Rfam assigns this 140-nucleotide sequence from Drosophila grimshawi to the family "U4 spliceosomal RNA". The family's consensus secondary structure is taken from published work.
[Rfam]
RNA sequence: AUCUUUGCGCAGAGGCGAUAUCGUAACCAAUGAAGUUCUACUGAGGUGCGAUUAUUGCUAGUUGAAAACUUUAACCAAUACCCUGCCAUGGGGACGUGAAAUACCGUCCGCUACGGCAAUUUUUGGAAGCCCGAGAGGGC
Numbered sequence: 001a002u003c004u005u006u007g008c009g010c011a012g013a014g015g016c017g018a019u020a021u022c023g024u025a026a027c028c029a030a031u032g033a034a035g036u037u038c039u040a041c042u043g044a045g046g047u048g049c050g051a052u053u054a055u056u057g058c059u060a061g062u063u064g065a066a067a068a069c070u071u072u073a074a075c076c077a078a079u080a081c082c083c084u085g086c087c088a089u090g091g092g093g094a095c096g097u098g099a100a101a102u103a104c105c106g107u108c109c110g111c112u113a114c115g116g117c118a119a120u121u122u123u124u125g126g127a128a129g130c131c132c133g134a135g136a137g138g139g140c
Stems, first nucleotide, its partner, number of pairs: 020052005026047003034042003085117003089113003092109005097103002129140004